[Rfam]
RNA sequence: UGAUAAUCUAAUCUGACCACAGCAAGAGCCUUCACGUGGUAGUCCCUUUCAGCCUUAAAGGUUGCCAAUGCUGCU
Numbered sequence: 001u002g003a004u005a006a007u008c009u010a011a012u013c014u015g016a017c018c019a020c021a022g023c024a025a026g027a028g029c030c031u032u033c034a035c036g037u038g039g040u041a042g043u044c045c046c047u048u049u050c051a052g053c054c055u056u057a058a059a060g061g062u063u064g065c066c067a068a069u070g071c072u073g074c075u
Stems, first nucleotide, its partner, number of pairs: 015044003021075004027069001028040003050064006
A member of the RNA family "Mammalian CPEB3 ribozyme" from Chelydra serpentina, 75 nucleotides long. The organism belongs to Chelydra, within Eukaryota.